A member of the RNA family "Plastid-ycf2 5UTR RNA" from Capsicum baccatum, 75 nucleotides long.

RNA sequence: GUGCAUCCAGUACGAAUUGAACCUACAAAUUCGUCAAUUAUGGGUUCGGCUCUUUAACUAUUCAGCCAUGAAUGC
Numbered sequence: 001g002u003g004c005a006u007c008c009a010g011u012a013c014g015a016a017u018u019g020a021a022c023c024u025a026c027a028a029a030u031u032c033g034u035c036a037a038u039u040a041u042g043g044g045u046u047c048g049g050c051u052c053u054u055u056a057a058c059u060a061u062u063c064a065g066c067c068a069u070g071a072a073u074g075c
Stems, first nucleotide, its partner, number of pairs: 003075004008070001010026003014022001040069003044066003048062002
The literature on the family includes a 2023 paper in Plant Commun by Richter et al., "Retrograde signaling in plants: A critical review focusing on the GUN pathway and beyond". The family's consensus secondary structure was predicted with LocARNA.